[Rfam]
RNA sequence: UGCAAGUGAUGUGAAAGAAUAUUUGCUAUCAGAAUGAUAGUGCUGACAUAUAACCACCAAGAUCGCUGAUGCA
Numbered sequence: 001u002g003c004a005a006g007u008g009a010u011g012u013g014a015a016a017g018a019a020u021a022u023u024u025g026c027u028a029u030c031a032g033a034a035u036g037a038u039a040g041u042g043c044u045g046a047c048a049u050a051u052a053a054c055c056a057c058c059a060a061g062a063u064c065g066c067u068g069a070u071g072c073a
Stems, first nucleotide, its partner, number of pairs: 001073004
About this RNA:
This 73-nucleotide RNA from Nothoprocta perdicaria belongs to the Rfam family "Small nucleolar RNA SNORD24". By type it is a C/D-box small nucleolar RNA. Its family is annotated with nucleolus and RNA processing in the Gene Ontology. On this family, see Qu et al., Nucleic Acids Res 1995: "U24, a novel intron-encoded small nucleolar RNA with two 12 nt long, phylogenetically conserved complementarities to 28S rRNA". The family's consensus secondary structure was predicted with PFOLD. Taxonomically the source falls in Nothoprocta (Eukaryota, Amniota, Theropoda, Tinamidae).